[Rfam]
RNA: Small nucleolar RNA SNORA74
RNA sequence: UCCAACAGUGGUCAGCUGUCUGAACAGAACCCUUCCGAGACAGUGUUACACUGCUAGGAGAGCAGCAUCUUGUCUUCUUCAUCUGGUUGCUUCCUACACUGUUCUGGUGGCAUCUGGCACUGGUGCAGGGCAGAACUCUCCUUCCUUGAGAGUGUGCUAAGCAUUCACUUCAGCUGCUUAGUUCUGUCUGGGAGCAGACACA
Numbered sequence: 001u002c003c004a005a006c007a008g009u010g011g012u013c014a015g016c017u018g019u020c021u022g023a024a025c026a027g028a029a030c031c032c033u034u035c036c037g038a039g040a041c042a043g044u045g046u047u048a049c050a051c052u053g054c055u056a057g058g059a060g061a062g063c064a065g066c067a068u069c070u071u072g073u074c075u076u077c078u079u080c081a082u083c084u085g086g087u088u089g090c091u092u093c094c095u096a097c098a099c100u101g102u103u104c105u106g107g108u109g110g111c112a113u114c115u116g117g118c119a120c121u122g123g124u125g126c127a128g129g130g131c132a133g134a135a136c137u138c139u140c141c142u143u144c145c146u147u148g149a150g151a152g153u154g155u156g157c158u159a160a161g162c163a164u165u166c167a168c169u170u171c172a173g174c175u176g177c178u179u180a181g182u183u184c185u186g187u188c189u190g191g192g193a194g195c196a197g198a199c200a201c202a
Stems, first nucleotide, its partner, number of pairs: 001058002004055001006053004011049002015044006021037002024034001068135001070133006080125004084119002087116001089114001091112001093110001097109004138197002141194005154184001156182001158180006